[Rfam]
RNA sequence: CCCUGUAUUCAAAGGUGAUUGUGUAGUGCGAAUCCCUAGUCAUUGAUACUACAGGAAGAGGAUGCCAAAAAGUUUUUCCCUGUAUUUGGAAGGUUCAUUCUUUCCUGUCCUUGCUAAAUCUUGGUGCUUCUGAACA
Numbered sequence: 001c002c003c004u005g006u007a008u009u010c011a012a013a014g015g016u017g018a019u020u021g022u023g024u025a026g027u028g029c030g031a032a033u034c035c036c037u038a039g040u041c042a043u044u045g046a047u048a049c050u051a052c053a054g055g056a057a058g059a060g061g062a063u064g065c066c067a068a069a070a071a072g073u074u075u076u077u078c079c080c081u082g083u084a085u086u087u088g089g090a091a092g093g094u095u096c097a098u099u100c101u102u103u104c105c106u107g108u109c110c111u112u113g114c115u116a117a118a119u120c121u122u123g124g125u126g127c128u129u130c131u132g133a134a135c136a
Stems, first nucleotide, its partner, number of pairs: 002055006009048001014044008023036001026034001068131001070129004084119005090112004

A member of the RNA family "Small nucleolar RNA SNORA71" from Microtus ochrogaster, 136 nucleotides long. By type it is an H/ACA-box small nucleolar RNA. Lineage of the source: Eukaryota > Deuterostomia > Muroidea > Cricetidae > Microtus. About the family: The members of this family belong to the H/ACA class of snoRNAs which bind a number of proteins (including dyskerin, Gar1p and Nop10p) to form snoRNP complexes. This class of snoRNAs are thought to guide the sites of modification of uridines to pseudouridines by forming direct base pairing interactions with substrate RNAs. This family includes U71 (SNORA71), ACA39 (SNORA39) and ACA60 (SNORA60).